[Rfam]
RNA sequence: ACGCUUUCGUUCUGGCUCGCCAGUGAUUAUAUCUGAAGGGCUGGCUUGCCAGCUAUGGUGAUAAACGCGGUCGUAAUAAGCCGAUCGGACCCGGGGGCGGUACCCGGCGCCUCCACCACUUUCUCCUUACCGCGCUUCGCGGCCGGCUCCCCGGAGGGGAGUCGCGAAGCGCAAACAGGGAGUCUAUGGGGGCGAAAUAGGAUCGACGAAGGUCUAAAGGACUUAGCUUUUGCCCGGCAUGAUACCACCGUUAUCGGGUCACACAGAAUAGUUGCCAAUGACAACUAUGCUGAGGCCGCUCUCGCUGCGUAAUGCAGUGCGAAUAGCCUGAACUUGAAGCCCUUAUCCUUAGCCGGAUAAGGCGCGGUUCGGAGGGCACCGGGCAACAGAAGCCCUCCACU
Numbered sequence: 001a002c003g004c005u006u007u008c009g010u011u012c013u014g015g016c017u018c019g020c021c022a023g024u025g026a027u028u029a030u031a032u033c034u035g036a037a038g039g040g041c042u043g044g045c046u047u048g049c050c051a052g053c054u055a056u057g058g059u060g061a062u063a064a065a066c067g068c069g070g071u072c073g074u075a076a077u078a079a080g081c082c083g084a085u086c087g088g089a090c091c092c093g094g095g096g097g098c099g100g101u102a103c104c105c106g107g108c109g110c111c112u113c114c115a116c117c118a119c120u121u122u123c124u125c126c127u128u129a130c131c132g133c134g135c136u137u138c139g140c141g142g143c144c145g146g147c148u149c150c151c152c153g154g155a156g157g158g159g160a161g162u163c164g165c166g167a168a169g170c171g172c173a174a175a176c177a178g179g180g181a182g183u184c185u186a187u188g189g190g191g192g193c194g195a196a197a198u199a200g201g202a203u204c205g206a207c208g209a210a211g212g213u214c215u216a217a218a219g220g221a222c223u224u225a226g227c228u229u230u231u232g233c234c235c236g237g238c239a240u241g242a243u244a245c246c247a248c249c250g251u252u253a254u255c256g257g258g259u260c261a262c263a264c265a266g267a268a269u270a271g272u273u274g275c276c277a278a279u280g281a282c283a284a285c286u287a288u289g290c291u292g293a294g295g296c297c298g299c300u301c302u303c304g305c306u307g308c309g310u311a312a313u314g315c316a317g318u319g320c321g322a323a324u325a326g327c328c329u330g331a332a333c334u335u336g337a338a339g340c341c342c343u344u345a346u347c348c349u350u351a352g353c354c355g356g357a358u359a360a361g362g363c364g365c366g367g368u369u370c371g372g373a374g375g376g377c378a379c380c381g382g383g384c385a386a387c388a389g390a391a392g393c394c395c396u397c398c399a400c401u
Base pairs, nucleotide, nucleotide: 040053041052042051043050044049057234058233059232060231061230067227068226069223070222071221072220081212082211085209086208087207091107092106093105094104095103108194109193110192111191112190113189114188235250236249237248240261241260242259245257246256365381366380367379368378371398372397373396374395375394376393
Shown here is a 401-nucleotide RNA sequence from Hyphomicrobium denitrificans, a member of the family "Alphaproteobacteria transfer-messenger RNA".
Rfam describes the family as follows. Bacterial tmRNA, also known as 10Sa RNA or SsrA, is named for its dual tRNA and mRNA-like properties. Its role is to liberate the mRNA from a stalled ribosome.
The source organism's lineage runs through Bacteria, Pseudomonadati, Hyphomicrobiales, Hyphomicrobiaceae and Hyphomicrobium denitrificans.